[Rfam]
RNA sequence: AAGCGCAAAGAUAAAAACACAGUCCCGGCUGGUAGUCCGGGCGCAGAAACACCUGUCAGUAACCUGCCUCCUCGGUUGUCCAUUCUUUGCCGUAGAAAC
Numbered sequence: 001a002a003g004c005g006c007a008a009a010g011a012u013a014a015a016a017a018c019a020c021a022g023u024c025c026c027g028g029c030u031g032g033u034a035g036u037c038c039g040g041g042c043g044c045a046g047a048a049a050c051a052c053c054u055g056u057c058a059g060u061a062a063c064c065u066g067c068c069u070c071c072u073c074g075g076u077u078g079u080c081c082a083u084u085c086u087u088u089g090c091c092g093u094a095g096a097a098a099c
Stems, first nucleotide, its partner, number of pairs: 005090007022042002025040004043056004066076003